[Rfam]
RNA: Group II catalytic intron D1-D4-7
RNA sequence: CCUACUGUCUCACCAGUAGUACCCAAGGCAGAUCGGCGGUGAACGAACCGUCGAGAGCCUGUCGACAAUGUAACUCGUAGCAAAUGCUACCGUCGGAACCGCGAGGAGACGACGGCUCUACCAUCAUCAGGCGGAUCGGGGC
Dot-bracket structure: .((((((......))))))........(((..((((((((......)))))))).....)))..............(((((....))))).((((...((....))...))))...(((.((.......)).))).......